Shown here is a 61-nucleotide RNA sequence from Chlorocebus sabaeus, a member of the family "U7 small nuclear RNA". Taxonomically the source falls in Chlorocebus (Eukaryota, Eumetazoa, Bilateria, Haplorrhini).
[Rfam]
RNA sequence: AAGUGUUAUAGCUCUUUUAGAAUUGUCUAACAGGCUUUCUGGUUUUGUCAGAAAGGCCCUA
Numbered sequence: 001a002a003g004u005g006u007u008a009u010a011g012c013u014c015u016u017u018u019a020g021a022a023u024u025g026u027c028u029a030a031c032a033g034g035c036u037u038u039c040u041g042g043u044u045u046u047g048u049c050a051g052a053a054a055g056g057c058c059c060u061a
Stems, first nucleotide, its partner, number of pairs: 033058003036054008